Notes: A member of the RNA family "T-box leader" from Geobacter sp. OR-1, 222 nucleotides long. By type it is a cis-regulatory leader. Rfam's curators write: Uncharged tRNA acts as the effector for transcription antitermination of genes in the T-box leader family.
RNA sequence: UCAAAGGCAGUGAAGAGGAGUAGUAGUCGCGGAACCUCUGGAGAGAGCCGGCGGAUGGUGCGAGCCGGUGGGGGGAAACGGUGAACUCGCCUCGGAGCCGCUCCGGUGAACGAAGAGUAAUCGGAGACGUCACCCACGUUACGGGACAAUCGAGGCCUGGCAGCUCUGUCUGCCGGAUAAAUAAGGGUGGUACCACGGAGAGCUCAAGCCUUCGUCCCUUUU
Numbered sequence: 001u002c003a004a005a006g007g008c009a010g011u012g013a014a015g016a017g018g019a020g021u022a023g024u025a026g027u028c029g030c031g032g033a034a035c036c037u038c039u040g041g042a043g044a045g046a047g048c049c050g051g052c053g054g055a056u057g058g059u060g061c062g063a064g065c066c067g068g069u070g071g072g073g074g075g076a077a078a079c080g081g082u083g084a085a086c087u088c089g090c091c092u093c094g095g096a097g098c099c100g101c102u103c104c105g106g107u108g109a110a111c112g113a114a115g116a117g118u119a120a121u122c123g124g125a126g127a128c129g130u131c132a133c134c135c136a137c138g139u140u141a142c143g144g145g146a147c148a149a150u151c152g153a154g155g156c157c158u159g160g161c162a163g164c165u166c167u168g169u170c171u172g173c174c175g176g177a178u179a180a181a182u183a184a185g186g187g188u189g190g191u192a193c194c195a196c197g198g199a200g201a202g203c204u205c206a207a208g209c210c211u212u213c214g215u216c217c218c219u220u221u222u
Base pairs, nucleotide, nucleotide: 007098008097015093016092017091018090026082027081028080029079036072037071038070047069048068049067050066051065052064101126102125103124104123105122106121107120128138129137130136157176158175159174160173161172162171163170184219185218186217187216195215196214197213198212199211